Rfam assigns this 138-nucleotide sequence from Anabas testudineus to the family "Small nucleolar RNA SNORA22". The base pairs follow the family's consensus structure, which was predicted with RNAfold. Rfam 15.1 lists 883 matches to the family in 606 species. It is annotated as an H/ACA-box small nucleolar RNA. About the family: ACA22 is a member of the H/ACA class of snoRNA that guide the sites of modification of uridines to pseudouridines. Lineage of the source: Eukaryota > Neopterygii > Clupeocephala > Eurypterygia > Anabas.
[Rfam]
RNA sequence: CUGCACAGCGAACACCCAGGGGGCGCCAUCGUGGCACUCCCUGGUCUCCUGAGUCUGUGCUAUAGUGACUCUGAUCUUUUCCUCUGCAUUAGGAGAGUUUUGGUCUCUUCUACAUGUAUUCAGCUGAUCAGCACAACC
Numbered sequence: 001c002u003g004c005a006c007a008g009c010g011a012a013c014a015c016c017c018a019g020g021g022g023g024c025g026c027c028a029u030c031g032u033g034g035c036a037c038u039c040c041c042u043g044g045u046c047u048c049c050u051g052a053g054u055c056u057g058u059g060c061u062a063u064a065g066u067g068a069c070u071c072u073g074a075u076c077u078u079u080u081c082c083u084c085u086g087c088a089u090u091a092g093g094a095g096a097g098u099u100u101u102g103g104u105c106u107c108u109u110c111u112a113c114a115u116g117u118a119u120u121c122a123g124c125u126g127a128u129c130a131g132c133a134c135a136a137c138c
Base pairs, nucleotide, nucleotide: 003060004059005058006057007056008055010054013051014050016044017043018042019041020040023037025035026034027033062077064075066073067072084123085122086121087116088115089114091111092110093109094108095107096106097105